[Rfam]
RNA sequence: ACGGAAGGACGGAAGGCCAAGGCGGAGCCGGAAGAGAAGGUUCAGUCUCCCAUCCCACCCUUCCCAGCACGGACACCAGGCACCCACGCGGAGCACGCCGCGACAAGGGCAGAAGCGUUGUGGGCCUGCGAGAUUCGGAUUGUCGACGGCGAAGGCCUCGCACAGGUUGCGGGGAUGAACCGGCGGAGUUCGAAUAGUCGCCGAGGCCGCAGAACACAACCCACCUAGCACGCUUGGUAACCCGGUAGUCCGUGCUAGCGGGCGGUGAGGUCGUCAACGACAACGCCGCCCGCUUUGAUGU
Numbered sequence: 001a002c003g004g005a006a007g008g009a010c011g012g013a014a015g016g017c018c019a020a021g022g023c024g025g026a027g028c029c030g031g032a033a034g035a036g037a038a039g040g041u042u043c044a045g046u047c048u049c050c051c052a053u054c055c056c057a058c059c060c061u062u063c064c065c066a067g068c069a070c071g072g073a074c075a076c077c078a079g080g081c082a083c084c085c086a087c088g089c090g091g092a093g094c095a096c097g098c099c100g101c102g103a104c105a106a107g108g109g110c111a112g113a114a115g116c117g118u119u120g121u122g123g124g125c126c127u128g129c130g131a132g133a134u135u136c137g138g139a140u141u142g143u144c145g146a147c148g149g150c151g152a153a154g155g156c157c158u159c160g161c162a163c164a165g166g167u168u169g170c171g172g173g174g175a176u177g178a179a180c181c182g183g184c185g186g187a188g189u190u191c192g193a194a195u196a197g198u199c200g201c202c203g204a205g206g207c208c209g210c211a212g213a214a215c216a217c218a219a220c221c222c223a224c225c226u227a228g229c230a231c232g233c234u235u236g237g238u239a240a241c242c243c244g245g246u247a248g249u250c251c252g253u254g255c256u257a258g259c260g261g262g263c264g265g266u267g268a269g270g271u272c273g274u275c276a277a278c279g280a281c282a283a284c285g286c287c288g289c290c291c292g293c294u295u296u297g298a299u300g301u
Base pairs, nucleotide, nucleotide: 003064004063006061007060008059011056012055015051016050020048021047025043026042027041028040029039066256067255068254069253070252071251072250073249076245077244079242080241084237085236086235088233089232090231093229094228097110098109099108117220118219119218120217121216122215123208124207125206126205127204128201129200130199131198133195134194135193136192137191138190143187144186147182148181149180150177151176156174157173158172159171160170161169162168258293259292260291261290262289263288264287265286266285267284270281271280272279
The record is a 301-nucleotide RNA from Nocardia amikacinitolerans, which matches "Mycobacterium smegmatis small RNA 1" in Rfam. Rfam describes the family as follows. Mycobacterium smegmatis small RNA 1 is highly expressed during stationary phase of growth. Gene Ontology term of the family: RNA polymerase binding. It scores 175 bits against the family's covariance model.